[Rfam]
A member of the RNA family "S4-Clostridia ribosomal protein leader" from Trichechus manatus, 66 nucleotides long. It is annotated as a cis-regulatory leader. The base pairs follow the family's consensus structure, which is taken from published work. The literature on the family includes a 2020 paper in BMC Microbiol by Eckert and Weinberg, "Discovery of 20 novel ribosomal leader candidates in bacteria and archaea". It scores 38 bits against the family's covariance model. NCBI's taxonomy places the organism under Eukaryota, Teleostomi, Theria, Trichechidae, Trichechus manatus.
RNA sequence: GAAAGGCUGCUCUAAUCAGCAGCUGGGCCAUGUAGGCAGGCGGCAGCGCAGAUGGUCCCAAUUAAA
Number, nucleotide and partner (000 for none) at each position: 001g000002a000003a000004a000005g024006g023007c022008u021009g020010c019011u000012c000013u000014a000015a000016u000017c000018a000019g010020c009021a008022g007023c006024u005025g058026g057027g056028c055029c054030a053031u052032g000033u000034a000035g000036g000037c000038a000039g000040g000041c000042g000043g000044c000045a000046g000047c000048g000049c000050a000051g000052a031053u030054g029055g028056u027057c026058c025059c000060a000061a000062u000063u000064a000065a000066a000